[Rfam]
RNA sequence: CGGCGGGCCACGCCGUCCCAACGCGGCGCGUCCUCUCUGGAAGGAGAGCUGAU
Numbered sequence: 001c002g003g004c005g006g007g008c009c010a011c012g013c014c015g016u017c018c019c020a021a022c023g024c025g026g027c028g029c030g031u032c033c034u035c036u037c038u039g040g041a042a043g044g045a046g047a048g049c050u051g052a053u
Stems, first nucleotide, its partner, number of pairs: 011028006033048006